Background:
The record is an 80-nucleotide RNA sequence from Trichoplusia ni, which matches "mir-184 microRNA precursor family" in Rfam. The literature on the family includes a 2005 paper in Genes Dev by Chen et al., "The developmental miRNA profiles of zebrafish as determined by small RNA cloning".

RNA sequence: GUUGUGCCGUGCCCUUGUCAUUCUUCUUGCCCGUGUGCUUAAGACUACUGGACGGAGAACUGAUAAGGGCAUGUCCAACA
Numbered sequence: 001g002u003u004g005u006g007c008c009g010u011g012c013c014c015u016u017g018u019c020a021u022u023c024u025u026c027u028u029g030c031c032c033g034u035g036u037g038c039u040u041a042a043g044a045c046u047a048c049u050g051g052a053c054g055g056a057g058a059a060c061u062g063a064u065a066a067g068g069g070c071a072u073g074u075c076c077a078a079c080a
Base pairs, nucleotide, nucleotide: 012069013068014067015066016065017064018063019062020061021059022058023057024056025055026054030051031050
The organism belongs to Trichoplusia, within Eukaryota. The base pairs follow the family's consensus structure, which was predicted with PFOLD.